[Rfam]
RNA: Small nucleolar RNA snR60/Z15/Z230/Z193/J17
RNA sequence: CUUUUGUGUAGUGAUGAUUCAUUUGGCAUAGUUCAUCUGAUACAUGUGAUGACCAUUGCUAAUUUAGUCUUUCGCUCCUAUCUGACACAAAUA
Numbered sequence: 001c002u003u004u005u006g007u008g009u010a011g012u013g014a015u016g017a018u019u020c021a022u023u024u025g026g027c028a029u030a031g032u033u034c035a036u037c038u039g040a041u042a043c044a045u046g047u048g049a050u051g052a053c054c055a056u057u058g059c060u061a062a063u064u065u066a067g068u069c070u071u072u073c074g075c076u077c078c079u080a081u082c083u084g085a086c087a088c089a090a091a092u093a
Base pairs, nucleotide, nucleotide: 004090005089006088007087008086